mir-71 microRNA precursor family: a 72-nucleotide RNA from Didymodactylos carnosus.

[Rfam]
RNA sequence: AUCCUAUGAAAGACAUGGGUAGUGAGAUGUUGAAUGCUUAACUCAUCUUGCUAGUCUGUCUUUCCAAAGGAU
Numbered sequence: 001a002u003c004c005u006a007u008g009a010a011a012g013a014c015a016u017g018g019g020u021a022g023u024g025a026g027a028u029g030u031u032g033a034a035u036g037c038u039u040a041a042c043u044c045a046u047c048u049u050g051c052u053a054g055u056c057u058g059u060c061u062u063u064c065c066a067a068a069g070g071a072u
Stems, first nucleotide, its partner, number of pairs: 008064008017056002021052009
Notes: The organism belongs to Didymodactylos, within Eukaryota. The base pairs follow the family's consensus structure, which was predicted with RNAalifold.